[Rfam]
RNA sequence: UGGGAGCACAUAAUCCGAGCCGAGUCUCUCUAAGUCUUGGGGAUAAGAGGGCUGGGUCGUAGCACAAAUUUUGCGCUACCAGGGCUAUGAUUUGAAAAGGUCGUAGCCUCCCGUGUUUGGAAAGGAUGCUAAUGAUUUCUACC
Dot-bracket structure: ..((........((((..(((.((((.(((...((((...))))..))))))).))).(((((...........)))))..((((((.(((((....))))).))))))((.......))...))))........))......
Numbered sequence: 001u002g003g004g005a006g007c008a009c010a011u012a013a014u015c016c017g018a019g020c021c022g023a024g025u026c027u028c029u030c031u032a033a034g035u036c037u038u039g040g041g042g043a044u045a046a047g048a049g050g051g052c053u054g055g056g057u058c059g060u061a062g063c064a065c066a067a068a069u070u071u072u073g074c075g076c077u078a079c080c081a082g083g084g085c086u087a088u089g090a091u092u093u094g095a096a097a098a099g100g101u102c103g104u105a106g107c108c109u110c111c112c113g114u115g116u117u118u119g120g121a122a123a124g125g126a127u128g129c130u131a132a133u134g135a136u137u138u139c140u141a142c143c
Stems, first nucleotide, its partner, number of pairs: 003137002013127004019057003023053004028049003034044004059079005082109006089102005110120002

This 143-nucleotide sequence from Pseudobacteriovorax antillogorgiicola belongs to the Rfam family "Molybdenum/Tungsten riboswitch aptamer (Moco RNA motif)". NCBI's taxonomy places the organism under Bacteria, Bdellovibrionota, Oligoflexales, Pseudobacteriovoracaceae, Pseudobacteriovorax. Rfam links the family to the GO terms tungstate binding, regulation of gene expression and molybdenum ion binding. A reference for the family is Weinberg et al. (2007), "Identification of 22 candidate structured RNAs in bacteria using the CMfinder comparative genomics pipeline", Nucleic Acids Res. The base pairs follow the family's consensus structure, which is taken from published work.